About this RNA:
The family of this 90-nucleotide RNA sequence from Arenimonas sp. is "SAH (S-adenosyl-L-homocysteine) riboswitch aptamer". On this family, see Wang et al., Mol Cell 2008: "Riboswitches that sense S-adenosylhomocysteine and activate genes involved in coenzyme recycling".

[Rfam]
RNA sequence: CCCGCCGAGGGGCGCUGCAAGCCCGGUCCACGCAACGCGGCCCAGGGAUCAGGCUCGGCGAAGGUCACCGAUCAACCGCGCCCGUUAACG
Dot-bracket structure: ..((((((.............(((.(................).))).......))))))..............................

Annotation:
It scores 49 bits against the family's covariance model. The source organism's lineage runs through Bacteria, Pseudomonadati, Gammaproteobacteria, Lysobacteraceae and Arenimonas.